Rfam assigns this 79-nucleotide RNA from Hermetia illucens to the family "drz-agam-1 ribozyme". It scores 37 bits against the family's covariance model. The family has 7 seed sequences and 10,507 matches in Rfam 15.1. Pairs were carried over by alignment from the consensus structure, which is taken from published work. Taxonomically the source falls in Hermetia (Eukaryota, Eumetazoa, Allotriocarida, Stratiomyomorpha). Rfam links the family to the GO term catalytic activity. A reference for the family is Webb et al. (2009), "Widespread occurrence of self-cleaving ribozymes", Science.
RNA sequence: UACUACCAAACCCUAUCUCCACCUCCACGCGGUAAUGGCUGGGAGUUCUUUCUUAAUGAAAAACUACAGAUGGAGGAUG
Numbered sequence: 001u002a003c004u005a006c007c008a009a010a011c012c013c014u015a016u017c018u019c020c021a022c023c024u025c026c027a028c029g030c031g032g033u034a035a036u037g038g039c040u041g042g043g044a045g046u047u048c049u050u051u052c053u054u055a056a057u058g059a060a061a062a063a064c065u066a067c068a069g070a071u072g073g074a075g076g077a078u079g
Stems, first nucleotide, its partner, number of pairs: 013079001016076005021033003044065004049060002052058001